Background: This 76-nucleotide RNA from Myotis brandtii belongs to the Rfam family "mir-9193 microRNA precursor family". Gene Ontology terms of the family: miRNA-mediated post-transcriptional gene silencing and RISC complex.

RNA sequence: GGUGGGGGGAGGGGAAGUCCCUGAGCCUGGAUUGUGAGAGGGUGCCGGCCAGGCUGAGGGACCCCACCAGUGCACG
Number, nucleotide and partner (000 for none) at each position: 001g000002g000003u074004g073005g000006g071007g000008g000009g068010a000011g000012g065013g064014g063015a000016a000017g062018u061019c060020c059021c058022u057023g000024a055025g054026c053027c052028u000029g050030g049031a000032u047033u000034g045035u044036g043037a000038g000039a000040g000041g000042g000043u036044g035045c034046c000047g032048g000049c030050c029051a000052g027053g026054c025055u024056g000057a022058g021059g020060g019061a018062c017063c014064c013065c012066a000067c000068c009069a000070g000071u006072g000073c004074a003075c000076g000